[Rfam]
RNA sequence: GGUCAGUGAUGUGGUGGCAUGUAUUAUCUGAAUGCAAAGUGAUGUGAAUUCUAAAAUUACACUGAGACCUU
Numbered sequence: 001g002g003u004c005a006g007u008g009a010u011g012u013g014g015u016g017g018c019a020u021g022u023a024u025u026a027u028c029u030g031a032a033u034g035c036a037a038a039g040u041g042a043u044g045u046g047a048a049u050u051c052u053a054a055a056a057u058u059a060c061a062c063u064g065a066g067a068c069c070u071u
Base pairs, nucleotide, nucleotide: 001069002068003067004066
Dot-bracket structure: ((((.............................................................))))..